The record is a 70-nucleotide RNA from Arsenophonus nasoniae, which matches "int-alpA RNA" in Rfam. Pairs were carried over by alignment from the consensus structure, which is taken from published work. About the family: Acidobacteria (1 example), Planctomycetes (1 example), Proteobacteria.
RNA sequence: GCUAUGUCUAGGCUGAUCCCCGAAUACCAGUACACCUCUACUGGCUGGCAUAGCCCCUACUAAAUGAGGG
Numbered sequence: 001g002c003u004a005u006g007u008c009u010a011g012g013c014u015g016a017u018c019c020c021c022g023a024a025u026a027c028c029a030g031u032a033c034a035c036c037u038c039u040a041c042u043g044g045c046u047g048g049c050a051u052a053g054c055c056c057c058u059a060c061u062a063a064a065u066g067a068g069g070g
Stems, first nucleotide, its partner, number of pairs: 001054008011021002027044005035070003039066001
Dot-bracket structure: ((((((((..((.......)).....(((((...[[[.[)))))..))))))))...........].]]]
Rfam classes the family as a small RNA. The organism belongs to Arsenophonus, within Bacteria.